[Rfam]
RNA sequence: AAAGCAGAUCGUCUUAUCGCUGGCAAUUGUCAGAGGAAAGUCCGGGCACCAUAGAGCAGAAUAGCGGGUAACGCCCGUCCGCCGUGAGGUGAGGACCAGUGCAACAGAAAGUAUGUACAGUUAGGCUGUAGUGAAACCAGGUAAACUCUAUUCGGUGAAAUGCCAUGUAAACCAACAUUAAGUGCUGCUCGCGCAAGUUGGAGGGUAGGCAGAUGGAACGUCUCAGUAAUGAUUCGUCUAGAUAAAUGAUAAGAACCUUUCUUUUACGGAAUACGUACAGAACCCGGCUUACAGGUCUGCUUUUUUA
Numbered sequence: 001a002a003a004g005c006a007g008a009u010c011g012u013c014u015u016a017u018c019g020c021u022g023g024c025a026a027u028u029g030u031c032a033g034a035g036g037a038a039a040g041u042c043c044g045g046g047c048a049c050c051a052u053a054g055a056g057c058a059g060a061a062u063a064g065c066g067g068g069u070a071a072c073g074c075c076c077g078u079c080c081g082c083c084g085u086g087a088g089g090u091g092a093g094g095a096c097c098a099g100u101g102c103a104a105c106a107g108a109a110a111g112u113a114u115g116u117a118c119a120g121u122u123a124g125g126c127u128g129u130a131g132u133g134a135a136a137c138c139a140g141g142u143a144a145a146c147u148c149u150a151u152u153c154g155g156u157g158a159a160a161u162g163c164c165a166u167g168u169a170a171a172c173c174a175a176c177a178u179u180a181a182g183u184g185c186u187g188c189u190c191g192c193g194c195a196a197g198u199u200g201g202a203g204g205g206u207a208g209g210c211a212g213a214u215g216g217a218a219c220g221u222c223u224c225a226g227u228a229a230u231g232a233u234u235c236g237u238c239u240a241g242a243u244a245a246a247u248g249a250u251a252a253g254a255a256c257c258u259u260u261c262u263u264u265u266a267c268g269g270a271a272u273a274c275g276u277a278c279a280g281a282a283c284c285c286g287g288c289u290u291a292c293a294g295g296u297c298u299g300c301u302u303u304u305u306u307a
Stems, first nucleotide, its partner, number of pairs: 001303010011292001012254007020033005038290003042287005047157004054190004059153005064078005079093001080091004094148002099146002101142002116130006161211004172201005182194004218237003223232003

Description
The family of this 307-nucleotide sequence from Paenimyroides marinum is "Bacterial RNase P class A". Its Rfam clan is "RNaseP clan".